This 446-nucleotide part of an RNA from Brachyspira murdochii belongs to the Rfam family "Bacterial large subunit ribosomal RNA".
Gene Ontology terms of the family: ribosome and structural constituent of ribosome.
Taxonomically the source falls in Brachyspira murdochii (Bacteria, Pseudomonadati, Spirochaetia, Brachyspirales).
The family has 102 seed sequences and 51,934 matches in Rfam 15.1.
RNA sequence: CUCUCCGAAAUGUCUUUAGGGGCAGCGUUAUGUGUUUACUUACGGGGGUAGAGCACUAAAUGGACUAGGGCUCCUAACCGAGUACCAAACCCAACUAAACUCCGAAUACCGUAAGUUAAGAGCAUGGCAGUUAGACAGCGGCGGAUAAGCGUCAUUGUCAAAAGGGAAACAGCCCAGAUCCUCAGCUAAGGUCCCAAAAUCUAUGUUAAGUGGGAAAGGAUGUGAGAAUACUUAAACAGCCAGGAGGUUGGCUUAGAAGCAGCCAUUCCUUUAAAGAGUGCGUAACAGCUCACUGGUCGAGUGUUCUUGCGCCGAAAAUGUAACGGGGCUCAAACAUAGUACCGAAGCUAGGGAAUUAUAGAGUUAAUCUAUAAUUGGUAGGAGAGCGUUCUUUAAGCCGUUGAAGGUUCGCCGUAAGGCGGGCUGGAGGUAUAAGAAGUGAGGAU
Numbered sequence: 001c002u003c004u005c006c007g008a009a010a011u012g013u014c015u016u017u018a019g020g021g022g023c024a025g026c027g028u029u030a031u032g033u034g035u036u037u038a039c040u041u042a043c044g045g046g047g048g049u050a051g052a053g054c055a056c057u058a059a060a061u062g063g064a065c066u067a068g069g070g071c072u073c074c075u076a077a078c079c080g081a082g083u084a085c086c087a088a089a090c091c092c093a094a095c096u097a098a099a100c101u102c103c104g105a106a107u108a109c110c111g112u113a114a115g116u117u118a119a120g121a122g123c124a125u126g127g128c129a130g131u132u133a134g135a136c137a138g139c140g141g142c143g144g145a146u147a148a149g150c151g152u153c154a155u156u157g158u159c160a161a162a163a164g165g166g167a168a169a170c171a172g173c174c175c176a177g178a179u180c181c182u183c184a185g186c187u188a189a190g191g192u193c194c195c196a197a198a199a200u201c202u203a204u205g206u207u208a209a210g211u212g213g214g215a216a217a218g219g220a221u222g223u224g225a226g227a228a229u230a231c232u233u234a235a236a237c238a239g240c241c242a243g244g245a246g247g248u249u250g251g252c253u254u255a256g257a258a259g260c261a262g263c264c265a266u267u268c269c270u271u272u273a274a275a276g277a278g279u280g281c282g283u284a285a286c287a288g289c290u291c292a293c294u295g296g297u298c299g300a301g302u303g304u305u306c307u308u309g310c311g312c313c314g315a316a317a318a319u320g321u322a323a324c325g326g327g328g329c330u331c332a333a334a335c336a337u338a339g340u341a342c343c344g345a346a347g348c349u350a351g352g353g354a355a356u357u358a359u360a361g362a363g364u365u366a367a368u369c370u371a372u373a374a375u376u377g378g379u380a381g382g383a384g385a386g387c388g389u390u391c392u393u394u395a396a397g398c399c400g401u402u403g404a405a406g407g408u409u410c411g412c413c414g415u416a417a418g419g420c421g422g423g424c425u426g427g428a429g430g431u432a433u434a435a436g437a438a439g440u441g442a443g444g445a446u
Stems, first nucleotide, its partner, number of pairs: 001386006011024005026130001027128007036121001038116008051103001052101002057097002061093003068086002070083004134159005140153004164175003179353004184349003190343003199340001201339006218313002222310010239297005245270003250264003271275001276291001280289002354376008387441001389438005397431003406425008